Annotation: A member of the RNA family "U5 spliceosomal RNA" from Pediculus humanus, 120 nucleotides long. It scores 90 bits against the family's covariance model. Taxonomically the source falls in Pediculus humanus (Eukaryota, Mandibulata, Dicondylia, Neoptera).
RNA sequence: CAAUUCGUGUUUCCCUUCAUAACGAAUAAAUCUUUCGCCUUUUACUAAAGAUUUCCGUGGAGGGGAACUUUUGUGAAUAUUUUUCACAAUUUUUGUAGCGUCUGUACAUCCGUACAGGCC
Numbered sequence: 001c002a003a004u005u006c007g008u009g010u011u012u013c014c015c016u017u018c019a020u021a022a023c024g025a026a027u028a029a030a031u032c033u034u035u036c037g038c039c040u041u042u043u044a045c046u047a048a049a050g051a052u053u054u055c056c057g058u059g060g061a062g063g064g065g066a067a068c069u070u071u072u073g074u075g076a077a078u079a080u081u082u083u084u085c086a087c088a089a090u091u092u093u094u095g096u097a098g099c100g101u102c103u104g105u106a107c108a109u110c111c112g113u114a115c116a117g118g119c120c
Stems, first nucleotide, its partner, number of pairs: 003078004009068011028054008100119006